[Rfam]
RNA sequence: AUCGAACCAUCUAUUGCAUUUACUGAAAGUAAUGCAGUUACUAAGGUGGUUAAGAGUGCGAUCAAAAGUCGUUGCUAGUCAUUUCCAGCUUGAUUGCGCUUGCUGGGUAAAUGGCGAGACCGUCAAAUUGCGGGGACACGUUGCUAAGCCAAUGAUAGGGCCAUGUUGAGGAAACUCAGGUGGCACUCAAGUUAAUAGCUUGAGGUAUCCUAAAAACUCAUUGGAUAGACGCAAUCCGCAGCCAAGUCCUAAGUGCAAUUUUUAGAUUGUAUAUGGAUGCAGUUCACAGACUAAAUGGCGGUCGGGGAUAAAAUCCCUUAAGAUAUAGUCGGUCCUCCCCGAGAGGGGGUC
Numbered sequence: 001a002u003c004g005a006a007c008c009a010u011c012u013a014u015u016g017c018a019u020u021u022a023c024u025g026a027a028a029g030u031a032a033u034g035c036a037g038u039u040a041c042u043a044a045g046g047u048g049g050u051u052a053a054g055a056g057u058g059c060g061a062u063c064a065a066a067a068g069u070c071g072u073u074g075c076u077a078g079u080c081a082u083u084u085c086c087a088g089c090u091u092g093a094u095u096g097c098g099c100u101u102g103c104u105g106g107g108u109a110a111a112u113g114g115c116g117a118g119a120c121c122g123u124c125a126a127a128u129u130g131c132g133g134g135g136a137c138a139c140g141u142u143g144c145u146a147a148g149c150c151a152a153u154g155a156u157a158g159g160g161c162c163a164u165g166u167u168g169a170g171g172a173a174a175c176u177c178a179g180g181u182g183g184c185a186c187u188c189a190a191g192u193u194a195a196u197a198g199c200u201u202g203a204g205g206u207a208u209c210c211u212a213a214a215a216a217c218u219c220a221u222u223g224g225a226u227a228g229a230c231g232c233a234a235u236c237c238g239c240a241g242c243c244a245a246g247u248c249c250u251a252a253g254u255g256c257a258a259u260u261u262u263u264a265g266a267u268u269g270u271a272u273a274u275g276g277a278u279g280c281a282g283u284u285c286a287c288a289g290a291c292u293a294a295a296u297g298g299c300g301g302u303c304g305g306g307g308a309u310a311a312a313a314u315c316c317c318u319u320a321a322g323a324u325a326u327a328g329u330c331g332g333u334c335c336u337c338c339c340c341g342a343g344a345g346g347g348g349g350u351c
Stems, first nucleotide, its partner, number of pairs: 001014002026039002118303005124297002129240006139231004241283002246278004254271005287331001289330005305317004336349005
RNA: Group I catalytic intron